[Rfam]
RNA sequence: AAGUUCUUACAGCUCUUUUUUAAUUUGCCCAUCAGGGAGGUCUUCUGGCUUUUACAGGAAGGCCCUA
Numbered sequence: 001a002a003g004u005u006c007u008u009a010c011a012g013c014u015c016u017u018u019u020u021u022a023a024u025u026u027g028c029c030c031a032u033c034a035g036g037g038a039g040g041u042c043u044u045c046u047g048g049c050u051u052u053u054a055c056a057g058g059a060a061g062g063c064c065c066u067a
Stems, first nucleotide, its partner, number of pairs: 039064008048055001
RNA: U7 small nuclear RNA
Organism: Pipistrellus kuhlii